[Rfam]
Notes
Rfam assigns this 266-nucleotide sequence from Venturia inaequalis to the family "Fungal signal recognition particle RNA". By type it is a non-coding RNA gene.
RNA sequence: CGGCUGUAAUGGUCGUAAAGUGAGAAGACCUCUCCAUCUGCUAGCGUCUUUCCCCUCCGUCGUCCGACAGUGAUGUGCCAAGUUCGAACCCGAAGGCGUUGCUCCACUCGUGCAGGUAACUCACGAUUGCUGGUGGUAACUUAAGAACGAGAGAUACCCUUGAGCCAAGCGAUUGGGCAGAGAACUCUCUCCUUCGGGUGGCGGUGCUUGAAUACACUUGCUUCGGUAAGGGAAAGGCGGAGCGGCUUGAGUGUCGACUUUUUUUU
Dot-bracket structure: ((((.......))))..(((.(((..(((.(.(..(.(((((..((((((((((..........(((.((((..(((.((((((((.(((((((((.(.(((((((.(((((.((....)))))))....))).)))).)(...)...(((((.....(((....(((....)))....)))..))))).)))))))))..))).)))))....))).)))))))....)))))))))).))))).).).).)))..))).)))..
The family has 50 seed sequences and 748 matches in Rfam 15.1.
It scores 120 bits against the family's covariance model.
Its Rfam clan is "SRP clan".
NCBI's taxonomy places the organism under Eukaryota, Opisthokonta, Ascomycota, Venturiaceae, Venturia.